This 99-nucleotide RNA sequence from Exobacillus caeni belongs to the Rfam family "Purine riboswitch aptamer".
A search with the family's covariance model found it, with a score of 71 bits.
The organism belongs to Exobacillus, within Bacteria.
Rfam links the family to the GO term purine nucleobase biosynthetic process.

RNA sequence: UUAAAUAAUAUUUUUUCCUUUCGUAUAACCUCAAUAAUUGGUUUGAGGGUCUCUACCAGGAACCGUAAAUUCCUAUCUACGAAAAGGCUCUUUGAGUGU
Numbered sequence: 001u002u003a004a005a006u007a008a009u010a011u012u013u014u015u016u017c018c019u020u021u022c023g024u025a026u027a028a029c030c031u032c033a034a035u036a037a038u039u040g041g042u043u044u045g046a047g048g049g050u051c052u053c054u055a056c057c058a059g060g061a062a063c064c065g066u067a068a069a070u071u072c073c074u075a076u077c078u079a080c081g082a083a084a085a086g087g088c089u090c091u092u093u094g095a096g097u098g099u
Stems, first nucleotide, its partner, number of pairs: 019084007029048006058074005
Dot-bracket structure: ..................(((((((...((((((........)))))).........(((((.......)))))...)))))))...............